[Rfam]
Shown here is a 386-nucleotide sequence from Mycobacterium sinensis, a member of the family "Bacterial RNase P class A".
Its family is annotated with dimeric ribonuclease P complex, tRNA processing and ribonuclease P activity in the Gene Ontology.
It scores 292 bits against the family's covariance model.
The base pairs follow the family's consensus structure, which is taken from published work.
The family's RNA type in Rfam is ribozyme.
The source organism's lineage runs through Bacteria, Bacillati, Actinomycetota, Actinomycetes and Mycobacterium (subgen. Mycolicibacter).
RNA sequence: CGAGUUGGCCGGGCGGCCGCGGCUCGCGAGAGUGGGUCGAGGAAAGUCCGGACUUCACAGAGCAGGGUGAUUGCUAACAGCAAUCCGAGGUGACUCGCGGGAUAGUGCCACAGAAAACAGACCGCCACCGCGAGGUGGUAAGGGUGAAACGGUGCGGUAAGAGCGCACCAGCGUGCCGGGUGACCGGUACGGCUUGGUAAACCCCACCCGAAGCAAGGCCAAGAAGACCGCACUUCGUGCGGUCGCGCAGGUGUUCGAGGGCUGCUCGCCCGAAUCUGCGGGUAGGCCGCUCGAGGUACCCGGCGACGGUGUGCCCAGAUGGAUGGUCGCCGCCGCACCGCGCCCGCGGUGCGGAACAGAAUCCGGCUUACAGGCCAGCUCGUCCG
Numbered sequence: 001c002g003a004g005u006u007g008g009c010c011g012g013g014c015g016g017c018c019g020c021g022g023c024u025c026g027c028g029a030g031a032g033u034g035g036g037u038c039g040a041g042g043a044a045a046g047u048c049c050g051g052a053c054u055u056c057a058c059a060g061a062g063c064a065g066g067g068u069g070a071u072u073g074c075u076a077a078c079a080g081c082a083a084u085c086c087g088a089g090g091u092g093a094c095u096c097g098c099g100g101g102a103u104a105g106u107g108c109c110a111c112a113g114a115a116a117a118c119a120g121a122c123c124g125c126c127a128c129c130g131c132g133a134g135g136u137g138g139u140a141a142g143g144g145u146g147a148a149a150c151g152g153u154g155c156g157g158u159a160a161g162a163g164c165g166c167a168c169c170a171g172c173g174u175g176c177c178g179g180g181u182g183a184c185c186g187g188u189a190c191g192g193c194u195u196g197g198u199a200a201a202c203c204c205c206a207c208c209c210g211a212a213g214c215a216a217g218g219c220c221a222a223g224a225a226g227a228c229c230g231c232a233c234u235u236c237g238u239g240c241g242g243u244c245g246c247g248c249a250g251g252u253g254u255u256c257g258a259g260g261g262c263u264g265c266u267c268g269c270c271c272g273a274a275u276c277u278g279c280g281g282g283u284a285g286g287c288c289g290c291u292c293g294a295g296g297u298a299c300c301c302g303g304c305g306a307c308g309g310u311g312u313g314c315c316c317a318g319a320u321g322g323a324u325g326g327u328c329g330c331c332g333c334c335g336c337a338c339c340g341c342g343c344c345c346g347c348g349g350u351g352c353g354g355a356a357c358a359g360a361a362u363c364c365g366g367c368u369u370a371c372a373g374g375c376c377a378g379c380u381c382g383u384c385c386g
Stems, first nucleotide, its partner, number of pairs: 001382010011371001012331007020039008044369003048366005053213004060267004065209005070084005085099001086097004100204002105202002107198003122143002124139006151169006171193001172191008217288004247279006259271004295314001300309003